RNA sequence: GGAGUUGGCUGGGCGGCGGCCUCCCGUAAGGGGGGAGGAAAGUCCGGACUUCACAGAGCAAGGCGCCCGGUAAGAGCUCGCUCAAGCCGGGGCGGGGCGACCCGACGGAAAGUGCAACAGAAACAAACCGCCGGCCUUCGGGCCGGUAAGGGUGAAAUGGUGAGGUAAGAGCUCACCGGCGGUAGGGGUAACCCACCGGCCGUGCAAACCCCGCCUGAAGCAAGGCCAAAUAGGGAGGGGAUGACGCGGCUCGCCGACCCUCCGGGUUGGCCGCGUAGACAAAUCGUCGUCCACGACAGAAUCCGGCUUAUAGGCCGACUCCACGA
Numbered sequence: 001g002g003a004g005u006u007g008g009c010u011g012g013g014c015g016g017c018g019g020c021c022u023c024c025c026g027u028a029a030g031g032g033g034g035g036a037g038g039a040a041a042g043u044c045c046g047g048a049c050u051u052c053a054c055a056g057a058g059c060a061a062g063g064c065g066c067c068c069g070g071u072a073a074g075a076g077c078u079c080g081c082u083c084a085a086g087c088c089g090g091g092g093c094g095g096g097g098c099g100a101c102c103c104g105a106c107g108g109a110a111a112g113u114g115c116a117a118c119a120g121a122a123a124c125a126a127a128c129c130g131c132c133g134g135c136c137u138u139c140g141g142g143c144c145g146g147u148a149a150g151g152g153u154g155a156a157a158u159g160g161u162g163a164g165g166u167a168a169g170a171g172c173u174c175a176c177c178g179g180c181g182g183u184a185g186g187g188g189u190a191a192c193c194c195a196c197c198g199g200c201c202g203u204g205c206a207a208a209c210c211c212c213g214c215c216u217g218a219a220g221c222a223a224g225g226c227c228a229a230a231u232a233g234g235g236a237g238g239g240g241a242u243g244a245c246g247c248g249g250c251u252c253g254c255c256g257a258c259c260c261u262c263c264g265g266g267u268u269g270g271c272c273g274c275g276u277a278g279a280c281a282a283a284u285c286g287u288c289g290u291c292c293a294c295g296a297c298a299g300a301a302u303c304c305g306g307c308u309u310a311u312a313g314g315c316c317g318a319c320u321c322c323a324c325g326a
Stems, first nucleotide, its partner, number of pairs: 001322010011311001012291007020035006040309003044306005049220004056252004061216005066091005092106001093104004107211002112209002114205003128151002130147007159177006179200001180198004185194003224272004234263006246254002
Background: This 326-nucleotide RNA sequence from Fimbriimonas ginsengisoli belongs to the Rfam family "Bacterial RNase P class A". Pairs were carried over by alignment from the consensus structure, which is taken from published work. For this family Rfam cites "Ribonuclease P: unity and diversity in a tRNA processing ribozyme" (Frank and Pace, Annu Rev Biochem, 1998). A search with the family's covariance model found it, with a score of 256 bits. Gene Ontology terms of the family: dimeric ribonuclease P complex, tRNA processing and ribonuclease P activity. Rfam's curators write: Ribonuclease P (RNase P) is a ubiquitous endoribonuclease, found in archaea, bacteria and eukarya as well as chloroplasts and mitochondria. By type it is a ribozyme.